[Rfam]
RNA sequence: UGCAGAUGAUGAUCAUUUUUUGCUGUGAAAAAAACCCGUGAUGACAACCACCAAGAUCGCUGAUGCA
Numbered sequence: 001u002g003c004a005g006a007u008g009a010u011g012a013u014c015a016u017u018u019u020u021u022g023c024u025g026u027g028a029a030a031a032a033a034a035c036c037c038g039u040g041a042u043g044a045c046a047a048c049c050a051c052c053a054a055g056a057u058c059g060c061u062g063a064u065g066c067a
Stems, first nucleotide, its partner, number of pairs: 001067004